ZMP/ZTP riboswitch aptamer (pfl RNA motif): a 79-nucleotide RNA sequence from Paenibacillus flagellatus.

[Rfam]
Nucleotides: 079
Stems, first nucleotide, its partner, number of pairs: 005050003009046004015040002017067005025036004058072003
Number, partner (000 for none) and nucleotide at each position: 001000g002000u003000a004000u005050c006049g007048c008000c009046g010045c011044g012043c013000a014000a015040c016039u017067g018066g019065c020064g021063u022000a023000a024000c025036a026035u027034g028033g029000g030000u031000c032000a033028c034027c035026a036025u037000g038000a039016g040015g041000g042000a043012g044011c045010g046009c047000c048007g049006c050005g051000u052000c053000a054000u055000a056000c057000c058072g059071c060070c061000g062000u063021a064020c065019g066018c067017c068000u069000g070060g071059g072058c073000a074000a075000a076000g077000c078000g079000u
Overview:
Gene Ontology terms of the family: regulation of purine nucleotide biosynthetic process and one-carbon metabolic process.